[Rfam]
RNA sequence: GCCGAGCUUGGUAACGUGAGCUUGUAACCCAAGUGGGGGCAAUAAAGUGGUGGAAUGUUGGGCUGCCUCCAGAUGGUAGGGCUUUGUGGGCUAAUCUCUGGCCUGCCCUCUCCAAGCAUAGGGUUGGGCUACGGAGCCCAAGUGAAAACAUGGGCUGCAUAGCUCCUAAAGUGGGGCAGACUGCGUGAGGCUGGCUUCACAGAGCAACGAACAGCUCCCGCUCUGUGCAGUGGAAGGAUAACGGGUCAGUGUUCACAAAGUCCAACAAAAGCCUGAUGGGCUGCUCCAAUUAAACCGCCACUUUU
Numbered sequence: 001g002c003c004g005a006g007c008u009u010g011g012u013a014a015c016g017u018g019a020g021c022u023u024g025u026a027a028c029c030c031a032a033g034u035g036g037g038g039g040c041a042a043u044a045a046a047g048u049g050g051u052g053g054a055a056u057g058u059u060g061g062g063c064u065g066c067c068u069c070c071a072g073a074u075g076g077u078a079g080g081g082c083u084u085u086g087u088g089g090g091c092u093a094a095u096c097u098c099u100g101g102c103c104u105g106c107c108c109u110c111u112c113c114a115a116g117c118a119u120a121g122g123g124u125u126g127g128g129c130u131a132c133g134g135a136g137c138c139c140a141a142g143u144g145a146a147a148a149c150a151u152g153g154g155c156u157g158c159a160u161a162g163c164u165c166c167u168a169a170a171g172u173g174g175g176g177c178a179g180a181c182u183g184c185g186u187g188a189g190g191c192u193g194g195c196u197u198c199a200c201a202g203a204g205c206a207a208c209g210a211a212c213a214g215c216u217c218c219c220g221c222u223c224u225g226u227g228c229a230g231u232g233g234a235a236g237g238a239u240a241a242c243g244g245g246u247c248a249g250u251g252u253u254c255a256c257a258a259a260g261u262c263c264a265a266c267a268a269a270a271g272c273c274u275g276a277u278g279g280g281c282u283g284c285u286c287c288a289a290u291u292a293a294a295c296c297g298c299c300a301c302u303u304u305u
Stems, first nucleotide, its partner, number of pairs: 001040003004023007028037003044304010056292002058289003061285003065281002069279003075273003079263008088254003092251002098249008107237002111234004116228009126165006133158001135156006142149002166171001173218005182211001184209003191202003
The family of this 305-nucleotide sequence from Nicotiana sylvestris is "Plant signal recognition particle RNA". Pairs were carried over by alignment from the consensus structure, which is taken from published work. A search with the family's covariance model found it, with a score of 261 bits. Rfam 15.1 lists 4,988 matches to the family in 266 species. Taxonomically the source falls in Nicotiana (Eukaryota, eudicotyledons, Gunneridae, Pentapetalae).